[Rfam]
RNA sequence: GUGCUUGUCAAGAACUUUCUCUGUGACUUGCGUGCAUUUUUCUCAUCGAAACCGCAUCACAGUCUGAGUUCUUGCUGAGCGC
Numbered sequence: 001g002u003g004c005u006u007g008u009c010a011a012g013a014a015c016u017u018u019c020u021c022u023g024u025g026a027c028u029u030g031c032g033u034g035c036a037u038u039u040u041u042c043u044c045a046u047c048g049a050a051a052c053c054g055c056a057u058c059a060c061a062g063u064c065u066g067a068g069u070u071c072u073u074g075c076u077g078a079g080c081g082c
Base pairs, nucleotide, nucleotide: 004079005078006077009074010073011072012071013070014069015068016067017066021062022061023060024059025058026057030055031054032053

Notes
This 82-nucleotide RNA from Drosophila albomicans belongs to the Rfam family "mir-11 microRNA precursor family". Rfam links the family to the GO terms RISC complex, cellular response to gamma radiation and negative regulation of apoptotic process. Pairs were carried over by alignment from the consensus structure, which was predicted with RNAalifold. Clan: mir-6 clan. A reference for the family is Chen et al. (2010), "Next-generation small RNA sequencing for microRNAs profiling in the honey bee Apis mellifera", Insect Mol Biol. The family has 20 seed sequences and 138 matches in Rfam 15.1.